[Rfam]
RNA sequence: UUAGAAAAAGGCAAACCAUUCCAAAGUCUGGGACGCAAAGCUUCAGGUCUAAGGUGAAAAACUAGGAUGGCUGAGUUACCUAAA
Numbered sequence: 001u002u003a004g005a006a007a008a009a010g011g012c013a014a015a016c017c018a019u020u021c022c023a024a025a026g027u028c029u030g031g032g033a034c035g036c037a038a039a040g041c042u043u044c045a046g047g048u049c050u051a052a053g054g055u056g057a058a059a060a061a062c063u064a065g066g067a068u069g070g071c072u073g074a075g076u077u078a079c080c081u082a083a084a
Stems, first nucleotide, its partner, number of pairs: 001084001003081002011036002016031003021026001034070001039077004044073003047068003